[Rfam]
RNA sequence: UGACGGGGGCCCGCACAAGCGGUGGAACAUGUGGUUUAAUUCGAUGCUACGCGAAAAACCUCACCUGGGCUUGACAUGUAUGUAGUAGCGAACUGAAAGGGGAGCGAACCGUCAAGUCGGUUGCAUACACAGGUGCUGCAUGGCUGUCGUCAGCUCGUGUCGUGAGAUGUUGGGUUAAGUCCCGCAACGAGCGCAACCAUUGCCCUAUGUUGCCACUCUGGUUUGCCGAAAGGUAGAUCGGAAGCACUCUUAGGGGACUGCCUGGGACAACCAGGAGGAAGGUGGAGAUGACGUCAAGUCAGUACGGCCUUUAUGCCCAGGGCGACACACGUGUUACAAUGGUCACUACAAAGGGUUGCCAACCCGCGAGGGGGAGCUAAUCUCAAAAAAGUGGCCUCAGUUCGGAUUGGAGUCUGCAAUUCGACUCCAUGAAGCCGGAAUCGCUAGUAAUGGUAGAUCAGCACGCUACCGUGAAUACGUUCCCGGGCCUUGUACACACCGCCCGUCAAGCGAUGGGAGCCGGAAGUACCCGAAGUCCUAUGUAGAUAGGCCCAAGGUAAAGCCGGUGACUGGCGCUAAGUCGUAACAAGG
Numbered sequence: 001u002g003a004c005g006g007g008g009g010c011c012c013g014c015a016c017a018a019g020c021g022g023u024g025g026a027a028c029a030u031g032u033g034g035u036u037u038a039a040u041u042c043g044a045u046g047c048u049a050c051g052c053g054a055a056a057a058a059c060c061u062c063a064c065c066u067g068g069g070c071u072u073g074a075c076a077u078g079u080a081u082g083u084a085g086u087a088g089c090g091a092a093c094u095g096a097a098a099g100g101g102g103a104g105c106g107a108a109c110c111g112u113c114a115a116g117u118c119g120g121u122u123g124c125a126u127a128c129a130c131a132g133g134u135g136c137u138g139c140a141u142g143g144c145u146g147u148c149g150u151c152a153g154c155u156c157g158u159g160u161c162g163u164g165a166g167a168u169g170u171u172g173g174g175u176u177a178a179g180u181c182c183c184g185c186a187a188c189g190a191g192c193g194c195a196a197c198c199a200u201u202g203c204c205c206u207a208u209g210u211u212g213c214c215a216c217u218c219u220g221g222u223u224u225g226c227c228g229a230a231a232g233g234u235a236g237a238u239c240g241g242a243a244g245c246a247c248u249c250u251u252a253g254g255g256g257a258c259u260g261c262c263u264g265g266g267a268c269a270a271c272c273a274g275g276a277g278g279a280a281g282g283u284g285g286a287g288a289u290g291a292c293g294u295c296a297a298g299u300c301a302g303u304a305c306g307g308c309c310u311u312u313a314u315g316c317c318c319a320g321g322g323c324g325a326c327a328c329a330c331g332u333g334u335u336a337c338a339a340u341g342g343u344c345a346c347u348a349c350a351a352a353g354g355g356u357u358g359c360c361a362a363c364c365c366g367c368g369a370g371g372g373g374g375a376g377c378u379a380a381u382c383u384c385a386a387a388a389a390a391g392u393g394g395c396c397u398c399a400g401u402u403c404g405g406a407u408u409g410g411a412g413u414c415u416g417c418a419a420u421u422c423g424a425c426u427c428c429a430u431g432a433a434g435c436c437g438g439a440a441u442c443g444c445u446a447g448u449a450a451u452g453g454u455a456g457a458u459c460a461g462c463a464c465g466c467u468a469c470c471g472u473g474a475a476u477a478c479g480u481u482c483c484c485g486g487g488c489c490u491u492g493u494a495c496a497c498a499c500c501g502c503c504c505g506u507c508a509a510g511c512g513a514u515g516g517g518a519g520c521c522g523g524a525a526g527u528a529c530c531c532g533a534a535g536u537c538c539u540a541u542g543u544a545g546a547u548a549g550g551c552c553c554a555a556g557g558u559a560a561a562g563c564c565g566g567u568g569a570c571u572g573g574c575g576c577u578a579a580g581u582c583g584u585a586a587c588a589a590g591g
Stems, first nucleotide, its partner, number of pairs: 001496002003493003007490007015480002019444005024337001026335008034326002040055004064321007077129007088105002093100002107122004132310002135308004141304002143299003146295001148293002153192006159168003171184004198287001200285002203255005209249001213244001217242010258278002261275005341396007353384003358377002363372003403434001408429007450472007499590001501587001504583002509577004514572003519567005527559004535552001537550005

The record is a 591-nucleotide part of an RNA from an uncultured bacterium, which matches "Bacterial small subunit ribosomal RNA" in Rfam. The family has 99 seed sequences and 42,628 matches in Rfam 15.1. Gene Ontology terms of the family: ribosome and structural constituent of ribosome.